[Rfam]
Rfam assigns this 98-nucleotide RNA from Propithecus coquereli to the family "Vault RNA". The family's RNA type in Rfam is non-coding RNA gene. A search with the family's covariance model found it, with a score of 54 bits. Lineage of the source: Eukaryota > Dipnotetrapodomorpha > Theria > Indriidae > Propithecus. The family's consensus secondary structure is taken from published work. Rfam 15.1 lists 2,873 matches to the family in 431 species.

RNA sequence: GGGCCAGCUUUAGCUCAGCAGUUCCUUCAACAGUGUUUUAACAACCUCUUUGCGGAGGCAUAGUGGUUCGAGACCUGUGGCCGCUCUCCAGCCCUUAA
Numbered sequence: 001g002g003g004c005c006a007g008c009u010u011u012a013g014c015u016c017a018g019c020a021g022u023u024c025c026u027u028c029a030a031c032a033g034u035g036u037u038u039u040a041a042c043a044a045c046c047u048c049u050u051u052g053c054g055g056a057g058g059c060a061u062a063g064u065g066g067u068u069c070g071a072g073a074c075c076u077g078u079g080g081c082c083g084c085u086c087u088c089c090a091g092c093c094c095u096u097a098a
Stems, first nucleotide, its partner, number of pairs: 002093003007088001013082001015080002018078004026072003030068001